[Rfam]
Source information: A member of the RNA family "Salmonella enterica sRNA STnc40" from Salmonella enterica, 84 nucleotides long. By type it is a small RNA.
RNA sequence: UUUCGUUAUCCUUCGCCAUCUAUUUGACACAUCUGGUUUAUCACACAUAAAAAAAGCGGCUGCAAAGCCGCUUGUUCUGUAUUG
Number, nucleotide and partner (000 for none) at each position: 001u000002u000003u000004c000005g028006u027007u026008a025009u000010c000011c000012u000013u000014c000015g000016c000017c000018a000019u000020c000021u000022a000023u000024u000025u008026g007027a006028c005029a000030c000031a000032u000033c000034u000035g000036g000037u000038u000039u000040a000041u000042c000043a000044c000045a000046c000047a000048u000049a000050a000051a000052a000053a000054a073055a072056g071057c070058g069059g068060c067061u066062g000063c000064a000065a000066a061067g060068c059069c058070g057071c056072u055073u054074g000075u000076u000077c000078u000079g000080u000081a000082u000083u000084g000